[Rfam]
RNA sequence: GUGAACUGAUAAUUUGAUAAGUGGAAUGAUGGGGUAACGCCCUGAAACGCUUACACUUGGUGGGCAUGCAGUUUCUGUAAAGGAGAUUGUAUGAAGCCCCACGACAAAGACUGAGAGUAACCGUAGCAGCUUGCCAAUAAAGUUGCCGAAAGCAGUCCAGAGGUGGAUUGUGUUACCUAUAGGUCGAGUGUCUAUAAA
Numbered sequence: 001g002u003g004a005a006c007u008g009a010u011a012a013u014u015u016g017a018u019a020a021g022u023g024g025a026a027u028g029a030u031g032g033g034g035u036a037a038c039g040c041c042c043u044g045a046a047a048c049g050c051u052u053a054c055a056c057u058u059g060g061u062g063g064g065c066a067u068g069c070a071g072u073u074u075c076u077g078u079a080a081a082g083g084a085g086a087u088u089g090u091a092u093g094a095a096g097c098c099c100c101a102c103g104a105c106a107a108a109g110a111c112u113g114a115g116a117g118u119a120a121c122c123g124u125a126g127c128a129g130c131u132u133g134c135c136a137a138u139a140a141a142g143u144u145g146c147c148g149a150a151a152g153c154a155g156u157c158c159a160g161a162g163g164u165g166g167a168u169u170g171u172g173u174u175a176c177c178u179a180u181a182g183g184u185c186g187a188g189u190g191u192c193u194a195u196a197a198a
Stems, first nucleotide, its partner, number of pairs: 018053006031043004054190004061101004065093012109185004117176005122148002129144001152171008
Dot-bracket structure: .................((((((.......((((.....))))....))))))((((...((((((((((((((((.....))))))))))))....)))).......((((....(((((((.....(..............)..))...((((((((....))))))))))))).....)))).))))........
Rfam assigns this 198-nucleotide RNA from Dorea sp. AF36-15AT to the family "Group II catalytic intron D1-D4-5".
Gene Ontology term of the family: Group II intron splicing.
Pairs were carried over by alignment from the consensus structure.
It scores 152 bits against the family's covariance model.